[Rfam]
RNA sequence: AUAUAGAAAUGCAAAAACACAGUUCCGGUUGGUAGUCCGGACGCAUAAUUUUUAUGUCAGUAACCUUCCCCUCCGGGAUGUCCAGCAUUUCUGAAUAUGUU
Numbered sequence: 001a002u003a004u005a006g007a008a009a010u011g012c013a014a015a016a017a018c019a020c021a022g023u024u025c026c027g028g029u030u031g032g033u034a035g036u037c038c039g040g041a042c043g044c045a046u047a048a049u050u051u052u053u054a055u056g057u058c059a060g061u062a063a064c065c066u067u068c069c070c071c072u073c074c075g076g077g078a079u080g081u082c083c084a085g086c087a088u089u090u091c092u093g094a095a096u097a098u099g100u101u
Base pairs, nucleotide, nucleotide: 004093005092006091007090008089009088010087011086022042023041025040026039027038028037043057044056045055046054047053048052067078068077069076070075
The record is a 101-nucleotide sequence, which matches "azaaromatic riboswitch aptamer (yjdF RNA)" in Rfam. The match comes from Rfam's covariance-model search (100 bits). The family's consensus secondary structure is taken from published work.